[Rfam]
RNA sequence: GGACUCGGCUUGCUGAAGCGCGCAAGGCAAGAGGCGAGGG
Numbered sequence: 001g002g003a004c005u006c007g008g009c010u011u012g013c014u015g016a017a018g019c020g021c022g023c024a025a026g027g028c029a030a031g032a033g034g035c036g037a038g039g040g
Stems, first nucleotide, its partner, number of pairs: 004038004009031006
A member of the RNA family "Human immunodeficiency virus type 1 dimerisation initiation site" from Lentivirus humimdef1, 40 nucleotides long. Its family is annotated with viral RNA genome packaging in the Gene Ontology. Rfam describes the family as follows. This cis element is composed of four hairpins called SL1 to SL4 (SL is for Stem Loop). This element is involved in encapsidation of the retroviral RNA an essential step in replication. It is found in HIV, SIV and CIV. It has been shown that SL1 may provide a secondary binding site for Rev. SL1, SL2, SL3 and SL4 have been independently expressed and structurally characterised.